[Rfam]
RNA: Rhodo-rpoB RNA
RNA sequence: GGUUCGGGAGCUUUCCGGUGGGACGGAGGGCAUGAAUUGAACCGCCCCCCUUCAUUCGCAUGCGGCGCGUGCCGGGCCCCGACGGCACGCCC
Numbered sequence: 001g002g003u004u005c006g007g008g009a010g011c012u013u014u015c016c017g018g019u020g021g022g023a024c025g026g027a028g029g030g031c032a033u034g035a036a037u038u039g040a041a042c043c044g045c046c047c048c049c050c051u052u053c054a055u056u057c058g059c060a061u062g063c064g065g066c067g068c069g070u071g072c073c074g075g076g077c078c079c080c081g082a083c084g085g086c087a088c089g090c091c092c
Stems, first nucleotide, its partner, number of pairs: 001043005010031008065092001067090008